A member of the RNA family "Vault RNA" from Cavia porcellus, 101 nucleotides long. By type it is a non-coding RNA gene. The source organism's lineage runs through Eukaryota, Glires, Rodentia, Caviidae and Cavia. The family's consensus secondary structure is taken from published work.
RNA sequence: GGGCUGGUUUUAGCCCAGCAGUUCCUUUGAGUCUGGCUUCCCAACCGCCCGGGCCAAUUAGUCCGGUGGUUCCAGACCCGCGGGUGCUCUCCAGUCCUUUU
Numbered sequence: 001g002g003g004c005u006g007g008u009u010u011u012a013g014c015c016c017a018g019c020a021g022u023u024c025c026u027u028u029g030a031g032u033c034u035g036g037c038u039u040c041c042c043a044a045c046c047g048c049c050c051g052g053g054c055c056a057a058u059u060a061g062u063c064c065g066g067u068g069g070u071u072c073c074a075g076a077c078c079c080g081c082g083g084g085u086g087c088u089c090u091c092c093a094g095u096c097c098u099u100u101u
Base pairs, nucleotide, nucleotide: 002096003095004094005093006092007091013085014084015083016082018081019080021078026075027074029072030071